[Rfam]
Shown here is a 76-nucleotide RNA from Mycobacteroides franklinii, a member of the family "6C RNA". The family's RNA type in Rfam is cis-regulatory element. On this family, see Weinberg et al., Nucleic Acids Res 2007: "Identification of 22 candidate structured RNAs in bacteria using the CMfinder comparative genomics pipeline".
RNA sequence: UGUGUCUCAGCCCGACCCCCCGGGGCUGAAGCACGACGACCCUCGCCUCCUCCCCCCCUGGCGAGGGUCGUCCUCU
Numbered sequence: 001u002g003u004g005u006c007u008c009a010g011c012c013c014g015a016c017c018c019c020c021c022g023g024g025g026c027u028g029a030a031g032c033a034c035g036a037c038g039a040c041c042c043u044c045g046c047c048u049c050c051u052c053c054c055c056c057c058c059u060g061g062c063g064a065g066g067g068u069c070g071u072c073c074u075c076u
Stems, first nucleotide, its partner, number of pairs: 002034004007029007035072013